[Rfam]
Annotation:
The family of this 72-nucleotide RNA from Cuscuta campestris is "Small nucleolar RNA R66". The family's RNA type in Rfam is C/D-box small nucleolar RNA. On this family, see Chen et al., Nucleic Acids Res 2003: "The high diversity of snoRNAs in plants: identification and comparative study of 120 snoRNA genes from Oryza sativa". Rfam's curators write: snoR66 is a C/D box small nucleolar RNA, which acts as a methylation guide for 18S ribosomal RNA in plants. snoR66 has been alternatively named snoZ269 in rice. The source organism's lineage runs through Eukaryota, eudicotyledons, Pentapetalae, Cuscuteae and Cuscuta sect. Cleistogrammica. The family has 6 seed sequences and 584 matches in Rfam 15.1.
RNA sequence: UCCAAUGAUGGUAAACCUUUGAGACCUGAAUCAAUAUCAUUGAUGAUAACGUCAAGCAUAAUUUCUGAGGAU
Numbered sequence: 001u002c003c004a005a006u007g008a009u010g011g012u013a014a015a016c017c018u019u020u021g022a023g024a025c026c027u028g029a030a031u032c033a034a035u036a037u038c039a040u041u042g043a044u045g046a047u048a049a050c051g052u053c054a055a056g057c058a059u060a061a062u063u064u065c066u067g068a069g070g071a072u
Stems, first nucleotide, its partner, number of pairs: 001071003029041003